Record summary: This 128-nucleotide RNA sequence from Prolemur simus belongs to the Rfam family "Small nucleolar RNA SNORA25". Gene Ontology terms of the family: RNA processing and nucleolus. The family's RNA type in Rfam is H/ACA-box small nucleolar RNA. Taxonomically the source falls in Prolemur (Eukaryota, Gnathostomata, Dipnotetrapodomorpha, Theria). ACA25 is a member of the H/ACA class of snoRNA that guide the sites of modification of uridines to pseudouridines. A search with the family's covariance model found it, with a score of 89 bits.
[Rfam]
RNA sequence: AGGUCAUUUCAAAGAGAGCUGUGGAGCUGUGAAAGCGAGAGCUCUUAAUGCUACGAUAAAAAAUUGAAGUUCUCUGUGGAAUGCAAUAGUCACUCUAGAGCGCUAUGUUUUCCUGAGGAUAAAUAUGA
Numbered sequence: 001a002g003g004u005c006a007u008u009u010c011a012a013a014g015a016g017a018g019c020u021g022u023g024g025a026g027c028u029g030u031g032a033a034a035g036c037g038a039g040a041g042c043u044c045u046u047a048a049u050g051c052u053a054c055g056a057u058a059a060a061a062a063a064u065u066g067a068a069g070u071u072c073u074c075u076g077u078g079g080a081a082u083g084c085a086a087u088a089g090u091c092a093c094u095c096u097a098g099a100g101c102g103c104u105a106u107g108u109u110u111u112c113c114u115g116a117g118g119a120u121a122a123a124u125a126u127g128a
Stems, first nucleotide, its partner, number of pairs: 003057003007053001014046007026036002071121001073119003078114002081111001086106004091102001093100002